[Rfam]
Nucleotides: 077
Base pairs, nucleotide, nucleotide: 032070033069034068035067036066037065038064039063040062041061042060
Number, partner (000 for none) and nucleotide at each position: 001000a002000c003000u004000g005000c006000u007000u008000u009000u010000c011000u012000u013000u014000g015000a016000u017000g018000u019000c020000c021000c022000c023000a024000u025000a026000u027000u028000g029000a030000g031000g032070a033069g034068c035067c036066c037065g038064a039063u040062a041061g042060c043000c044000a045000a046000c047000u048000a049000u050000a051000u052000g053000u054000u055000u056000u057000a058000u059000c060042g061041c062040u063039a064038u065037c066036g067035g068034g069033u070032u071000u072000u073000u074000g075000u076000u077000g
This 77-nucleotide RNA from Providencia stuartii belongs to the Rfam family "RybB RNA". It scores 69 bits against the family's covariance model. This ncRNA was identified in a large scale screen of E. coli. The function of this short RNA is unknown. The exact 5' and 3' ends of this RNA are uncertain.